[Rfam]
RNA sequence: AUGAUUACAAGGGGAGAGAUUAUGGGGAAUGGAAGCAAAGUUUAUUCCGCCAUAACGCCGAAGGAGCAAACAAUUGUGAAUCUCUCAGGCAAACAGACUCUUGUAGGACG
Numbered sequence: 001a002u003g004a005u006u007a008c009a010a011g012g013g014g015a016g017a018g019a020u021u022a023u024g025g026g027g028a029a030u031g032g033a034a035g036c037a038a039a040g041u042u043u044a045u046u047c048c049g050c051c052a053u054a055a056c057g058c059c060g061a062a063g064g065a066g067c068a069a070a071c072a073a074u075u076g077u078g079a080a081u082c083u084c085u086c087a088g089g090c091a092a093a094c095a096g097a098c099u100c101u102u103g104u105a106g107g108a109c110g
Stems, first nucleotide, its partner, number of pairs: 006105008020055006057090003060086002064084003070077002